[Rfam]
RNA sequence: GUGGAGGUGAUGACCCUUUCCCCAAAUGAUCGACGUUGAUUAUACUGUGCGUCUUGUAAUGUUCCUCUUCGGAGGAACCAAGCCAGUGGUUCUGAUCCAU
Numbered sequence: 001g002u003g004g005a006g007g008u009g010a011u012g013a014c015c016c017u018u019u020c021c022c023c024a025a026a027u028g029a030u031c032g033a034c035g036u037u038g039a040u041u042a043u044a045c046u047g048u049g050c051g052u053c054u055u056g057u058a059a060u061g062u063u064c065c066u067c068u069u070c071g072g073a074g075g076a077a078c079c080a081a082g083c084c085a086g087u088g089g090u091u092c093u094g095a096u097c098c099a100u
Base pairs, nucleotide, nucleotide: 001100002099003098004097005096